[Rfam]
Nucleotides: 113
Base pairs, nucleotide, nucleotide: 001078002077003076004075009038011037012036013035014034015033016032021030022029039065040064041063044061045060046059048056049055081102082101083100084099085098086097087096088095089094
Number, partner (000 for none) and nucleotide at each position: 001078g002077g003076u004075c005000a006000c007000g008000a009038g010000u011037u012036c013035c014034a015033g016032c017000g018000c019000a020000c021030a022029g023000c024000c025000c026000c027000g028000g029022c030021u031000u032016g033015c034014u035013g036012g037011a038009c039065g040064g041063c042000a043000a044061c045060c046059c047000u048056c049055c050000a051000c052000c053000g054000c055049g056048g057000u058000g059046g060045g061044g062000u063041g064040c065039u066000c067000c068000g069000g070000g071000u072000g073000a074000c075004g076003a077002c078001c079000u080000g081102g082101c083100u084099g085098c086097g087096u088095g089094c090000g091000a092000c093000c094089g095088c096087a097086c098085g099084c100083a101082g102081c103000a104000a105000g106000c107000g108000c109000g110000g111000g112000u113000u

Shown here is a 113-nucleotide RNA from Dermacoccus sp. 147Ba, a member of the family "SAM (S-adenosyl methionine) riboswitch aptamer". From the family's description: SAM-IV is a mRNA element that regulates gene expression via direct sensing of S-adenosylmethionine (SAM or AdoMet). SAM-IV riboswitches share conserved nucleotide positions with the previously described SAM-I riboswitches sequence analysis and molecular recognition experiments suggest that SAM-I and SAM-IV riboswitches share similar ligand binding sites, but have different scaffolds. Clan: SAM clan. On this family, see Weinberg et al., RNA 2008: "The aptamer core of SAM-IV riboswitches mimics the ligand-binding site of SAM-I riboswitches". A search with the family's covariance model found it, with a score of 116 bits. The base pairs follow the family's consensus structure, which is taken from published work.